[Rfam]
RNA: tRNA
Organism: Nitratireductor indicus
RNA sequence: GGGCGAUUAGCUCAGCUGGUAGAGCGCUUCGUUUACACCGAAGAUGUCGGGAGUUCGAGUCUCUCAUCGCCCA
Dot-bracket structure: (((((((..((((........)))).(((((.......))))).....(((((.......)))))))))))).